[Rfam]
RNA sequence: UUUGAGGGGAAUGUUGUCUGGCUCGAGGCCACAAACUAGAUCUAUGAUAUUAUCUCAAUUUCACCAAUUUGCCAAAUUAGAUCUUUGGUAUCCCCAGUUGACAGGGGUGCUCAUAUCAUUGAUCAUGAGUUUAUGACGUCGGACCAGGCUUCAUUCCCCCCAAU
Number, nucleotide and partner (000 for none) at each position: 001u000002u163003u162004g161005a000006g159007g158008g157009g156010a155011a154012u153013g152014u000015u000016g149017u148018c147019u146020g145021g144022c000023u000024c141025g140026a139027g000028g000029c000030c000031a000032c000033a000034a000035a000036c000037u000038a000039g000040a000041u000042c000043u000044a000045u000046g000047a000048u000049a000050u000051u000052a000053u000054c000055u000056c000057a000058a000059u000060u000061u000062c000063a000064c000065c000066a000067a000068u000069u000070u000071g000072c000073c000074a000075a000076a000077u000078u000079a000080g000081a000082u000083c000084u000085u000086u000087g000088g000089u000090a000091u000092c000093c000094c000095c000096a000097g000098u000099u000100g000101a000102c000103a000104g000105g000106g000107g000108u000109g000110c000111u000112c000113a000114u000115a000116u000117c000118a000119u000120u000121g000122a000123u000124c000125a000126u000127g000128a000129g000130u000131u000132u000133a000134u000135g000136a000137c000138g000139u026140c025141g024142g000143a000144c021145c020146a019147g018148g017149c016150u000151u000152c013153a012154u011155u010156c009157c008158c007159c006160c000161c004162a003163a002164u000
Rfam assigns this 164-nucleotide sequence from Carya illinoinensis to the family "mir-166 microRNA precursor family". Gene Ontology terms of the family: miRNA-mediated post-transcriptional gene silencing and RISC complex. The match comes from Rfam's covariance-model search (83 bits). This family represents the plant microRNA (miRNA) precursor mir-166.